[Rfam]
RNA sequence: UCGUGAACUUUGUAUCGCGUACAUCACUUAAAUGAACUCUAGAGAGUCGCAUAAAAG
Numbered sequence: 001u002c003g004u005g006a007a008c009u010u011u012g013u014a015u016c017g018c019g020u021a022c023a024u025c026a027c028u029u030a031a032a033u034g035a036a037c038u039c040u041a042g043a044g045a046g047u048c049g050c051a052u053a054a055a056a057g
Base pairs, nucleotide, nucleotide: 019037020036022034023033024032